Shown here is a 94-nucleotide RNA from Sorghum bicolor, a member of the family "MIR5387 microRNA precursor family". Rfam links the family to the GO terms miRNA-mediated post-transcriptional gene silencing and RISC complex. Rfam 15.1 lists 1,029 matches to the family in 9 species. It scores 69 bits against the family's covariance model. The base pairs follow the family's consensus structure, which was predicted with RNAalifold.
[Rfam]
RNA sequence: CCGUAACACGAGCCGGGACUAAAGGGUCCCUGCCCCGACAACCCUGACAGGCAGCCGUUGAGCAGGACCCUUUAGUCCCGGCUUGUGUUACGGG
Numbered sequence: 001c002c003g004u005a006a007c008a009c010g011a012g013c014c015g016g017g018a019c020u021a022a023a024g025g026g027u028c029c030c031u032g033c034c035c036c037g038a039c040a041a042c043c044c045u046g047a048c049a050g051g052c053a054g055c056c057g058u059u060g061a062g063c064a065g066g067a068c069c070c071u072u073u074a075g076u077c078c079c080g081g082c083u084u085g086u087g088u089u090a091c092g093g094g
Stems, first nucleotide, its partner, number of pairs: 003091025029066002034062001036060001038058002044050002